mir-9014 microRNA precursor family: an 88-nucleotide RNA sequence from Equus caballus. It scores 79 bits against the family's covariance model. The source organism's lineage runs through Eukaryota, Metazoa, Deuterostomia, Boreoeutheria and Equus.
RNA sequence: GGAGCCAUAGGAAGGGAUCCCAACCCAGCCUUAGGAAACGAAACCUGCCACGGGAGUCUUGGAGUUUGGCGACCACCCUAAAGACUUA
Numbered sequence: 001g002g003a004g005c006c007a008u009a010g011g012a013a014g015g016g017a018u019c020c021c022a023a024c025c026c027a028g029c030c031u032u033a034g035g036a037a038a039c040g041a042a043a044c045c046u047g048c049c050a051c052g053g054g055a056g057u058c059u060u061g062g063a064g065u066u067u068g069g070c071g072a073c074c075a076c077c078c079u080a081a082a083g084a085c086u087u088a
Stems, first nucleotide, its partner, number of pairs: 002087003006083001008081001010079002015074002018071001020069004025064001029062002038060001040058002044054004